[Rfam]
RNA sequence: AGUCCCGUGGCGCAGUGGUAGCGCGUCGUUCUUAUAUUGGCCGGUUUGAUCACCACUAAUAUGGCUUGUUGCAGGCAAUGCGAAUGUCGCGGGUUCAAUCCCCGCCGGGACUA
Numbered sequence: 001a002g003u004c005c006c007g008u009g010g011c012g013c014a015g016u017g018g019u020a021g022c023g024c025g026u027c028g029u030u031c032u033u034a035u036a037u038u039g040g041c042c043g044g045u046u047u048g049a050u051c052a053c054c055a056c057u058a059a060u061a062u063g064g065c066u067u068g069u070u071g072c073a074g075g076c077a078a079u080g081c082g083a084a085u086g087u088c089g090c091g092g093g094u095u096c097a098a099u100c101c102c103c104g105c106c107g108g109g110a111c112u113a
Stems, first nucleotide, its partner, number of pairs: 001112007010024004026083004089105005

Shown here is a 113-nucleotide RNA sequence from Pseudovirgaria hyperparasitica, a member of the family "tRNA". Transfer RNA (tRNA) molecules are approximately 80 nucleotides in length. Their secondary structure includes four short double-helical elements and three loops (D, anti-codon, and T loops). Further hydrogen bonds mediate the characteristic L-shaped molecular structure. tRNAs have two regions of fundamental functional importance: the anti-codon, which is responsible for specific mRNA codon recognition, and the 3' end, to which the tRNAs corresponding amino acid is attached (by aminoacyl-tRNA synthetases). tRNAs cope with the degeneracy of the genetic code in two manners: having more than one tRNA (with a specific anti-codon) for a particular amino acid; and 'wobble' base-pairing, i.e. permitting non-standard base-pairing at the 3rd anti-codon position. The base pairs follow the family's consensus structure, which is taken from published work. Its family is annotated with triplet codon-amino acid adaptor activity in the Gene Ontology.